Shown here is a 133-nucleotide RNA, a member of the family "LOOT RNA". By type it is a small RNA.
[Rfam]
RNA sequence: UACCUAAACUAGCGAGAAAUCUCUGGCAUGGUUACAUAAAAUCCUACGCAAAUAGAAACGGCCACAUAAGCCGGCACUUAUUUGCGUAGGUUCGCUCUCGAAAGAGGGCGAGAUAAUUCCGAAAGGAGUUGUC
Numbered sequence: 001u002a003c004c005u006a007a008a009c010u011a012g013c014g015a016g017a018a019a020u021c022u023c024u025g026g027c028a029u030g031g032u033u034a035c036a037u038a039a040a041a042u043c044c045u046a047c048g049c050a051a052a053u054a055g056a057a058a059c060g061g062c063c064a065c066a067u068a069a070g071c072c073g074g075c076a077c078u079u080a081u082u083u084g085c086g087u088a089g090g091u092u093c094g095c096u097c098u099c100g101a102a103a104g105a106g107g108g109c110g111a112g113a114u115a116a117u118u119c120c121g122a123a124a125g126g127a128g129u130u131g132u133c
Stems, first nucleotide, its partner, number of pairs: 002032003009026004014021002043090011059073004092111008112133009

Rfam's curators put it in the seed alignment.